Annotation:
L31-Actinobacteria ribosomal protein leader: a 72-nucleotide RNA. On this family, see Eckert and Weinberg, BMC Microbiol 2020: "Discovery of 20 novel ribosomal leader candidates in bacteria and archaea". The family's RNA type in Rfam is cis-regulatory leader. The sequence is in the family's curated seed alignment.
RNA sequence: GCGGUACCGGUUCACGCCCCCGGCGCUCACAGCUCAGUAGCGUUGCGAACGCCGCCCGGCGACCCGGCGACC
Numbered sequence: 001g002c003g004g005u006a007c008c009g010g011u012u013c014a015c016g017c018c019c020c021c022g023g024c025g026c027u028c029a030c031a032g033c034u035c036a037g038u039a040g041c042g043u044u045g046c047g048a049a050c051g052c053c054g055c056c057c058g059g060c061g062a063c064c065c066g067g068c069g070a071c072c
Base pairs, nucleotide, nucleotide: 003072004071005070007067008066009065010064015061016060017059018058021054022053023052024051025050